The family of this 75-nucleotide RNA sequence from Xenopus tropicalis is "mir-5928 microRNA precursor family". The base pairs follow the family's consensus structure, which was predicted with RNAalifold. Lineage of the source: Eukaryota > Deuterostomia > Sarcopterygii > Batrachia > Silurana.
RNA sequence: UGCCCCACAUCCCAGUAGAAAGUAACAGUACAAUCACAUGAUUGUACUGUUACUUUCUACUGGGAUGUGGGGCAG
Number, nucleotide and partner (000 for none) at each position: 001u074002g073003c072004c071005c070006c069007a068008c067009a066010u000011c064012c063013c062014a061015g060016u059017a058018g057019a056020a055021a054022g053023u052024a000025a050026c049027a048028g047029u046030a045031c000032a043033a042034u041035c040036a000037c000038a000039u000040g035041a034042u033043u032044g000045u030046a029047c028048u027049g026050u025051u000052a023053c022054u021055u020056u019057c018058u017059a016060c015061u014062g013063g012064g011065a000066u009067g008068u007069g006070g005071g004072g003073c002074a001075g000